[Rfam]
RNA sequence: AUAUAUACUAAUGCUGCAUUGGAACCCAGUGGAGUCAUCUUGCUGAUGGCUGGGGCCCAACCAAAUAAGGUGAUUAUAUGGGAUACUGUAUGAAAGCCAAGACCAUGUGAUUGGUUUACGGGAUUAAAAGACCGCUUUGGUUAGGGGCGCAAUCCGCUCUUCGAUGUAAACGACUAUCCGACUAGGCACGACAAGAGGCUCUGUAGAAAUACAUCCCACGUGAUGAUGUUAGCGUGAGAAACUAGCAUCUGCGUUCUCAAAAGAAGUGUUCGGCUUGAUGAGUGGUAACACUCUAUAACUAGUUUGAUAGGUGCGAUUAGGCGAACGCCGAAAAAAAGAAAUCCUUAACCCGUUUUUUCGCUGAAGCUCGCUGAAAGUUGGAAGGUAAUUUAGUCCUUCCCGUUGGACGGUAGAAAUACCCAUUCCAGAAGUUAAGGGGUCGCUCCCUUUGGCUCAGCCUGGCGUGAACGUGCGUGAAUAACAAAUUAGAGUAAGAAUUGUAUGAUGAAGGUCGCCAAUGCCUUUUUUAUUAUU
Numbered sequence: 001a002u003a004u005a006u007a008c009u010a011a012u013g014c015u016g017c018a019u020u021g022g023a024a025c026c027c028a029g030u031g032g033a034g035u036c037a038u039c040u041u042g043c044u045g046a047u048g049g050c051u052g053g054g055g056c057c058c059a060a061c062c063a064a065a066u067a068a069g070g071u072g073a074u075u076a077u078a079u080g081g082g083a084u085a086c087u088g089u090a091u092g093a094a095a096g097c098c099a100a101g102a103c104c105a106u107g108u109g110a111u112u113g114g115u116u117u118a119c120g121g122g123a124u125u126a127a128a129a130g131a132c133c134g135c136u137u138u139g140g141u142u143a144g145g146g147g148c149g150c151a152a153u154c155c156g157c158u159c160u161u162c163g164a165u166g167u168a169a170a171c172g173a174c175u176a177u178c179c180g181a182c183u184a185g186g187c188a189c190g191a192c193a194a195g196a197g198g199c200u201c202u203g204u205a206g207a208a209a210u211a212c213a214u215c216c217c218a219c220g221u222g223a224u225g226a227u228g229u230u231a232g233c234g235u236g237a238g239a240a241a242c243u244a245g246c247a248u249c250u251g252c253g254u255u256c257u258c259a260a261a262a263g264a265a266g267u268g269u270u271c272g273g274c275u276u277g278a279u280g281a282g283u284g285g286u287a288a289c290a291c292u293c294u295a296u297a298a299c300u301a302g303u304u305u306g307a308u309a310g311g312u313g314c315g316a317u318u319a320g321g322c323g324a325a326c327g328c329c330g331a332a333a334a335a336a337a338g339a340a341a342u343c344c345u346u347a348a349c350c351c352g353u354u355u356u357u358u359c360g361c362u363g364a365a366g367c368u369c370g371c372u373g374a375a376a377g378u379u380g381g382a383a384g385g386u387a388a389u390u391u392a393g394u395c396c397u398u399c400c401c402g403u404u405g406g407a408c409g410g411u412a413g414a415a416a417u418a419c420c421c422a423u424u425c426c427a428g429a430a431g432u433u434a435a436g437g438g439g440u441c442g443c444u445c446c447c448u449u450u451g452g453c454u455c456a457g458c459c460u461g462g463c464g465u466g467a468a469c470g471u472g473c474g475u476g477a478a479u480a481a482c483a484a485a486u487u488a489g490a491g492u493a494a495g496a497a498u499u500g501u502a503u504g505a506u507g508a509a510g511g512u513c514g515c516c517a518a519u520g521c522c523u524u525u526u527u528u529a530u531u532a533u534u
Stems, first nucleotide, its partner, number of pairs: 007531001009529003013525001016522001020518001022516001025054005035049005056146003059142003069098003074093008101116005121133002156515001158491001160489001165484001174310005180304006186269004202213004218254004225249007235259004270331005280293005314377001320372005360458004380473001381400001383398002401470003424464001426462001428460001431454001433451007503514004
This 534-nucleotide RNA belongs to the Rfam family "ROOL RNA". From the family's description: Firmicutes, Fusobacteria (1 example), Tenericutes (1 example).